mir-1791 microRNA precursor family: an 80-nucleotide RNA from Alligator sinensis. Taxonomically the source falls in Alligator (Eukaryota, Opisthokonta, Bilateria, Alligatoridae). The family's consensus secondary structure was predicted with RNAalifold. Gene Ontology terms of the family: miRNA-mediated post-transcriptional gene silencing and RISC complex. A search with the family's covariance model found it, with a score of 84 bits.
RNA sequence: UGCACCAUGUUGGGCUGCCUCAGUCAUGCCAUGUUAUGAAACCUAAUCCAAUGUGACUGAUGCAGGCUGACGUGAUGUGU
Numbered sequence: 001u002g003c004a005c006c007a008u009g010u011u012g013g014g015c016u017g018c019c020u021c022a023g024u025c026a027u028g029c030c031a032u033g034u035u036a037u038g039a040a041a042c043c044u045a046a047u048c049c050a051a052u053g054u055g056a057c058u059g060a061u062g063c064a065g066g067c068u069g070a071c072g073u074g075a076u077g078u079g080u
Stems, first nucleotide, its partner, number of pairs: 002080004006074008015065004020060009033047004